[Rfam]
Notes
A member of the RNA family "mir-344 microRNA precursor family" from Cricetulus griseus, 65 nucleotides long. The family's consensus secondary structure was predicted with RNAalifold. Taxonomically the source falls in Cricetulus (Eukaryota, Eumetazoa, Bilateria, Euteleostomi). A reference for the family is Chiang et al. (2010), "Mammalian microRNAs: experimental evaluation of novel and previously annotated genes", Genes Dev. Gene Ontology terms of the family: miRNA-mediated post-transcriptional gene silencing and RISC complex.
RNA sequence: UUAUCACUCAGGCUCCUGGUUAAACUCCAGCAUAUAGCUGUGUUUAACCAAAGCCUGAAUAUAAA
Numbered sequence: 001u002u003a004u005c006a007c008u009c010a011g012g013c014u015c016c017u018g019g020u021u022a023a024a025c026u027c028c029a030g031c032a033u034a035u036a037g038c039u040g041u042g043u044u045u046a047a048c049c050a051a052a053g054c055c056u057g058a059a060u061a062u063a064a065a
Stems, first nucleotide, its partner, number of pairs: 008058002011055004017050008028040004